[Rfam]
RNA sequence: ACUGUGGAGUGUACUUAGGAUCUGUGAGUAGAGAUAACUUCGGUUACUCAAAAGCAUACACAAAGAAACAGUAA
Numbered sequence: 001a002c003u004g005u006g007g008a009g010u011g012u013a014c015u016u017a018g019g020a021u022c023u024g025u026g027a028g029u030a031g032a033g034a035u036a037a038c039u040u041c042g043g044u045u046a047c048u049c050a051a052a053a054g055c056a057u058a059c060a061c062a063a064a065g066a067a068a069c070a071g072u073a074a
Base pairs, nucleotide, nucleotide: 001072002071003070004069005068009061010060011059012058013057023056024055025054031049032048033047035046036045
Dot-bracket structure: (((((...(((((.........(((.....(((.((........)))))....))))))))......)))))..
This 74-nucleotide RNA sequence from Blautia luti belongs to the Rfam family "RAGATH-18 RNA". The match comes from Rfam's covariance-model search (58 bits). The family's consensus secondary structure is taken from published work. From the family's description: Actinobacteria, Firmicutes, Fusobacteria, Thermotogae (1 example).